[Rfam]
RNA sequence: GCUGCUUUUGGGUGGAUUACUCCGCAAUUUCAAUACAUGAGACAAUCACAUAAAUUGCACAGUAUCCAUCUACAAUCCGCC
Numbered sequence: 001g002c003u004g005c006u007u008u009u010g011g012g013u014g015g016a017u018u019a020c021u022c023c024g025c026a027a028u029u030u031c032a033a034u035a036c037a038u039g040a041g042a043c044a045a046u047c048a049c050a051u052a053a054a055u056u057g058c059a060c061a062g063u064a065u066c067c068a069u070c071u072a073c074a075a076u077c078c079g080c081c
Base pairs, nucleotide, nucleotide: 009072010071011070012069013068014067015066016065017064019063020062024058025057026056027055028054029053030052
This 81-nucleotide RNA sequence from Mastacembelus armatus belongs to the Rfam family "mir-363 microRNA precursor family". The base pairs follow the family's consensus structure, which was predicted with RNAalifold. Gene Ontology terms of the family: miRNA-mediated post-transcriptional gene silencing and RISC complex. The organism belongs to Mastacembelus, within Eukaryota. On this family, see Linsen et al., BMC Genomics 2010: "Small RNA expression and strain specificity in the rat".